[Rfam]
RNA sequence: GAAAGCCAAGUUUGUAAGUCGCUCUGGAUAAGAGCGUCUGCUAAAUGACUUAAA
Dot-bracket structure: ............((((...((((((.....))))))..))).)...........
Overview: UnaL2 LINE 3' element: a 54-nucleotide RNA from Coregonus sp. 'balchen'. From the family's description: The eel long interspersed element (LINE) UnaL2 and its partner short interspersed element (SINE) share a conserved 3' tail containing a stem-loop that is critical for their retrotransposition. By type it is a cis-regulatory element. On this family, see Baba et al., RNA 2004: "Solution structure of an RNA stem-loop derived from the 3' conserved region of eel LINE UnaL2". A search with the family's covariance model found it, with a score of 71 bits. NCBI's taxonomy places the organism under Eukaryota, Metazoa, Chordata, Coregoninae, Coregonus.